Background:
Small nucleolar RNA SNORA3/SNORA45 family: a 132-nucleotide RNA from Pteruthius melanotis. The members of this family belong to the H/ACA class of snoRNAs which are thought to guide the sites of modification of uridines to pseudouridines. This family includes mouse snoMBI-28 and human homologues ACA3 (SNORA3) and ACA3-2 (SNORA45). Both ACA3 and ACA3-2 share the same host gene. MBI-28, ACA3 and ACA3-2 are all predicted to guide the pseudouridylation of residues in 28S rRNA. The family's consensus secondary structure was predicted with RNAalifold. The family is grouped with related families in Rfam's "SNORA3 clan". Taxonomically the source falls in Pteruthius (Eukaryota, Deuterostomia, Archosauria, Sylvioidea). Rfam classes the family as an H/ACA-box small nucleolar RNA. Gene Ontology terms of the family: RNA processing and nucleolus.
RNA sequence: CUCGAGACUAGAGUCACAUCUCCACAUGUGUGGUUGUCUUGGUGUGCUAUAGUUCUCGGACAGAAACCUCUGAUCCAUAUUCACUGGCUGUGAUGUCCUGUGUCUCAGCCAGCCACCGAAUCAGGGACACUG
Numbered sequence: 001c002u003c004g005a006g007a008c009u010a011g012a013g014u015c016a017c018a019u020c021u022c023c024a025c026a027u028g029u030g031u032g033g034u035u036g037u038c039u040u041g042g043u044g045u046g047c048u049a050u051a052g053u054u055c056u057c058g059g060a061c062a063g064a065a066a067c068c069u070c071u072g073a074u075c076c077a078u079a080u081u082c083a084c085u086g087g088c089u090g091u092g093a094u095g096u097c098c099u100g101u102g103u104c105u106c107a108g109c110c111a112g113c114c115a116c117c118g119a120a121u122c123a124g125g126g127a128c129a130c131u132g
Stems, first nucleotide, its partner, number of pairs: 002059005007053003012048002015046006024037003070124005076118001084112004089107002092104003